Background: Shown here is a 68-nucleotide RNA sequence from Erinaceus europaeus, a member of the family "Small nucleolar RNA SNORD95". For this family Rfam cites "Identification of 13 novel human modification guide RNAs" (Vitali et al., Nucleic Acids Res, 2003). The base pairs follow the family's consensus structure, which was predicted with PFOLD. The organism belongs to Erinaceus, within Eukaryota. Gene Ontology terms of the family: RNA processing and nucleolus. The match comes from Rfam's covariance-model search (65 bits). By type it is a C/D-box small nucleolar RNA.
RNA sequence: AGUGUGGUGAUGAUCGCAACAUGCUCUAUGAGUGUCCAUGCUGAGAACCAGAGGCUGUCCCUGAGCUA
Numbered sequence: 001a002g003u004g005u006g007g008u009g010a011u012g013a014u015c016g017c018a019a020c021a022u023g024c025u026c027u028a029u030g031a032g033u034g035u036c037c038a039u040g041c042u043g044a045g046a047a048c049c050a051g052a053g054g055c056u057g058u059c060c061c062u063g064a065g066c067u068a
Base pairs, nucleotide, nucleotide: 005068006067007066008065